nrdJ RNA: an 80-nucleotide sequence from Streptomyces clavuligerus. Pairs were carried over by alignment from the consensus structure, which is taken from published work. Lineage of the source: Bacteria > Bacillati > Kitasatosporales > Streptomycetaceae > Streptomyces.

RNA sequence: AUCGUUCAUGGACGCUCGGGGGCGUCCGUGACACCACAGACAGACCGUGCCCUGGGAAGAUCUGGGCACUUCAGGGCGUU
Numbered sequence: 001a002u003c004g005u006u007c008a009u010g011g012a013c014g015c016u017c018g019g020g021g022g023c024g025u026c027c028g029u030g031a032c033a034c035c036a037c038a039g040a041c042a043g044a045c046c047g048u049g050c051c052c053u054g055g056g057a058a059g060a061u062c063u064g065g066g067c068a069c070u071u072c073a074g075g076g077c078g079u080u
Base pairs, nucleotide, nucleotide: 006031007030008029009028010027011026012025013024014023015022016021047069048068049067050066051065052064054062